[Rfam]
RNA sequence: ACAGUCGCGUCGGGAGAGACUGGUCUUCUGAGGUUCUGGUUGAACUUCAAGGGCCGGCGCCGAAGGAGCAACCGCCCCGGAAACUCUCAGGCAAAAGGACCCUCGCGACUUC
Numbered sequence: 001a002c003a004g005u006c007g008c009g010u011c012g013g014g015a016g017a018g019a020c021u022g023g024u025c026u027u028c029u030g031a032g033g034u035u036c037u038g039g040u041u042g043a044a045c046u047u048c049a050a051g052g053g054c055c056g057g058c059g060c061c062g063a064a065g066g067a068g069c070a071a072c073c074g075c076c077c078c079g080g081a082a083a084c085u086c087u088c089a090g091g092c093a094a095a096a097g098g099a100c101c102c103u104c105g106c107g108a109c110u111u112c
Stems, first nucleotide, its partner, number of pairs: 006107004012101002020057008059092003062088002066086003072080002